The family of this 85-nucleotide sequence from Geosporobacter ferrireducens is "c-di-GMP-I riboswitch aptamer". Rfam links the family to the GO term cyclic-di-GMP binding.

RNA sequence: CAUUCGACAAGGCAAACUUAUUGAAAAAUAAGGACGCAAAGCCACGGGUCUAACGUAGCCAUACUAUGAUCGUCGAGCUGUCAAA
Numbered sequence: 001c002a003u004u005c006g007a008c009a010a011g012g013c014a015a016a017c018u019u020a021u022u023g024a025a026a027a028a029u030a031a032g033g034a035c036g037c038a039a040a041g042c043c044a045c046g047g048g049u050c051u052a053a054c055g056u057a058g059c060c061a062u063a064c065u066a067u068g069a070u071c072g073u074c075g076a077g078c079u080g081u082c083a084a085a
Base pairs, nucleotide, nucleotide: 012037013036017032018031019030020029021028022027040079041078042077045075046074047073048070049069050068055064056063057062
Dot-bracket structure: ...........((...((((((....))))))...))..(((..((((((....(((....)))...)))..))).)))......

For this family Rfam cites "Identification of 22 candidate structured RNAs in bacteria using the CMfinder comparative genomics pipeline" (Weinberg et al., Nucleic Acids Res, 2007). Pairs were carried over by alignment from the consensus structure, which is taken from published work.